[Rfam]
RNA sequence: UCGACGAAUACUUAGUCAAGAUCAUUGCUAUAGUAUUUGUGAUGUUUUAUUGUUAUAAAUAAACAGAUUAUCAAAAGUGAUGAUGAAAAGGCGCGGCUCAAAAAAUGAAAAUAUUUCGAUUUCUUUCAAGAUCUAACGAAAUUGUUAGGAAUCCGAAAAAUAGAUGAUAAAUUUUGGUGAAUAAUAGAUUCUUCUUUUAUUCUCUGAAAAAUUCAAGAGCUUGUCGCCAGCUGAACUUAA
Numbered sequence: 001u002c003g004a005c006g007a008a009u010a011c012u013u014a015g016u017c018a019a020g021a022u023c024a025u026u027g028c029u030a031u032a033g034u035a036u037u038u039g040u041g042a043u044g045u046u047u048u049a050u051u052g053u054u055a056u057a058a059a060u061a062a063a064c065a066g067a068u069u070a071u072c073a074a075a076a077g078u079g080a081u082g083a084u085g086a087a088a089a090g091g092c093g094c095g096g097c098u099c100a101a102a103a104a105a106u107g108a109a110a111a112u113a114u115u116u117c118g119a120u121u122u123c124u125u126u127c128a129a130g131a132u133c134u135a136a137c138g139a140a141a142u143u144g145u146u147a148g149g150a151a152u153c154c155g156a157a158a159a160a161u162a163g164a165u166g167a168u169a170a171a172u173u174u175u176g177g178u179g180a181a182u183a184a185u186a187g188a189u190u191c192u193u194c195u196u197u198u199a200u201u202c203u204c205u206g207a208a209a210a211a212u213u214c215a216a217g218a219g220c221u222u223g224u225c226g227c228c229a230g231c232u233g234a235a236c237u238u239a240a
Stems, first nucleotide, its partner, number of pairs: 001042003005039001007036001009035004018029001021026001046067001050066005075238004093227005098218002106169002114159003118153007172211004177204001

Rfam assigns this 240-nucleotide RNA sequence from Plasmodium gonderi to the family "ACEA small nucleolar RNA U3". The literature on the family includes a 1997 paper in Nucleic Acids Res by Zwieb, "The uRNA database". Rfam describes the family as follows. Small nucleolar RNAs (snoRNAs) are involved in the processing and modification of rRNA in the nucleolus. There are two main classes of snoRNAs: the box C/D class, and the box H/ACA class. U3 snoRNA is a member of the box C/D class. Indeed, the box C/D element is a subset of the six short sequence elements found in all U3 snoRNAs, namely boxes A, A', B, C, C', and D. The U3 snoRNA secondary structure is characterised by a small 5' domain (with boxes A and A'), and a larger 3' domain (with boxes B, C, C', and D), the two domains being linked by a single-stranded hinge. Boxes B and C form the B/C motif, which appears to be exclusive to U3 snoRNAs, and boxes C' and D form the C'/D motif. The latter is functionally similar to the C/D motifs found in other snoRNAs. The 5' domain and the hinge region act as a pre-rRNA-binding domain. The 3' domain has conserved protein-binding sites. Both the box B/C and box C'/D motifs are sufficient for nuclear retention of U3 snoRNA. The box C'/D motif is also necessary for nucleolar localisation, stability and hyper-methylation of U3 snoRNA. Both box B/C and C'/D motifs are involved in specific protein interactions and are necessary for the rRNA processing functions of U3 snoRNA. By type it is a C/D-box small nucleolar RNA. The organism belongs to Plasmodium, within Eukaryota.